About this RNA: The family of this 75-nucleotide sequence from Macrostomum lignano is "bZIP non canonical Hac1/Xbp1 intron". Rfam's curators write: bZIP intron RNA is a non-canonical intron that was first reported in HAC1 gene in yeast and XBP1 gene in Metazoa. It scores 44 bits against the family's covariance model. The family's consensus secondary structure was predicted with RNAfold.
RNA sequence: GCGCGCUCGACCCCGGCAGACAGGACAGCAGUGCCUGUGGCCAACCCUCAGCAGCAGGGUCGGGGUCUGGCGCGC
Numbered sequence: 001g002c003g004c005g006c007u008c009g010a011c012c013c014c015g016g017c018a019g020a021c022a023g024g025a026c027a028g029c030a031g032u033g034c035c036u037g038u039g040g041c042c043a044a045c046c047c048u049c050a051g052c053a054g055c056a057g058g059g060u061c062g063g064g065g066u067c068u069g070g071c072g073c074g075c
Stems, first nucleotide, its partner, number of pairs: 001075007009067005020038005044060005
Dot-bracket structure: (((((((.(((((......(((((.........))))).....(((((.......)))))..))))).)))))))